[Rfam]
RNA sequence: GCGAGACACCUGGUCCAUCCCGCGACCACGACCGAUAGACUGUCCGCGGAACGUCUUGGGGCGCAGCCCCCUGCCGGUCCGUCAACGAAGAGCCAGCAGCCGCUGCAACCCCAGGGAG
Numbered sequence: 001g002c003g004a005g006a007c008a009c010c011u012g013g014u015c016c017a018u019c020c021c022g023c024g025a026c027c028a029c030g031a032c033c034g035a036u037a038g039a040c041u042g043u044c045c046g047c048g049g050a051a052c053g054u055c056u057u058g059g060g061g062c063g064c065a066g067c068c069c070c071c072u073g074c075c076g077g078u079c080c081g082u083c084a085a086c087g088a089a090g091a092g093c094c095a096g097c098a099g100c101c102g103c104u105g106c107a108a109c110c111c112c113a114g115g116g117a118g
Stems, first nucleotide, its partner, number of pairs: 048080003052076002056073001058072004094105004
About this RNA
The family of this 118-nucleotide sequence from Streptomyces sp. adm13(2018) is "Streptomyces-metK RNA". It is annotated as a small RNA.